RNA sequence: UGAUUUCCCGUGAUUCAUUAAGUGUCCUACUCAGCGAUAAUGUCCUGCAGGCCUGACUGAUGCUCAUGGAAAAUUGUGCCGUCAGAUAGCUGACGAGCUCCCACUUUAUCGCUGGUUUU
Numbered sequence: 001u002g003a004u005u006u007c008c009c010g011u012g013a014u015u016c017a018u019u020a021a022g023u024g025u026c027c028u029a030c031u032c033a034g035c036g037a038u039a040a041u042g043u044c045c046u047g048c049a050g051g052c053c054u055g056a057c058u059g060a061u062g063c064u065c066a067u068g069g070a071a072a073a074u075u076g077u078g079c080c081g082u083c084a085g086a087u088a089g090c091u092g093a094c095g096a097g098c099u100c101c102c103a104c105u106u107u108a109u110c111g112c113u114g115g116u117u118u119u
Stems, first nucleotide, its partner, number of pairs: 004088001006086002010082001024053001026051003030047001034043003057078001092117003096113003